[Rfam]
RNA: Nuclear RNase P
RNA sequence: GUCGCCCGAGAGGCUGCAUGGGCGGGCCUAAGAGUGGCGCUAGUCGCACAAACAACCCGCGGGAAGGUCUGAGGCAUGUUGGUUUACUUGCCCGAGACGGGCAGACCCUGGUUUACUGGGGCUCCACGAUAACAGAAAUCGACCCGCGCGCCUACCAGUCCCCGUGAUGGCUAUCCGGCCGGAGGGGGUGGGCGUGUCGGGAUGAGACGGUCGUGGCCUAAGCGCGUGUAGCGAGAUCGGCAGCAAAAUGAUUAACUCAAUUCAGACUACUGCUCGGGCGAC
Numbered sequence: 001g002u003c004g005c006c007c008g009a010g011a012g013g014c015u016g017c018a019u020g021g022g023c024g025g026g027c028c029u030a031a032g033a034g035u036g037g038c039g040c041u042a043g044u045c046g047c048a049c050a051a052a053c054a055a056c057c058c059g060c061g062g063g064a065a066g067g068u069c070u071g072a073g074g075c076a077u078g079u080u081g082g083u084u085u086a087c088u089u090g091c092c093c094g095a096g097a098c099g100g101g102c103a104g105a106c107c108c109u110g111g112u113u114u115a116c117u118g119g120g121g122c123u124c125c126a127c128g129a130u131a132a133c134a135g136a137a138a139u140c141g142a143c144c145c146g147c148g149c150g151c152c153u154a155c156c157a158g159u160c161c162c163c164g165u166g167a168u169g170g171c172u173a174u175c176c177g178g179c180c181g182g183a184g185g186g187g188g189u190g191g192g193c194g195u196g197u198c199g200g201g202a203u204g205a206g207a208c209g210g211u212c213g214u215g216g217c218c219u220a221a222g223c224g225c226g227u228g229u230a231g232c233g234a235g236a237u238c239g240g241c242a243g244c245a246a247a248a249u250g251a252u253u254a255a256c257u258c259a260a261u262u263c264a265g266a267c268u269a270c271u272g273c274u275c276g277g278g279c280g281a282c
Base pairs, nucleotide, nucleotide: 001282002281003280004279008275009274010273013244014243015242016241017240022060023059024058025057026056037049038046039045069265070264071263072262073261079220081218082217089103090102091101092100093099104123106121107120108119109118110117111116124216125215126214127213128212129211130210143201144200145199245253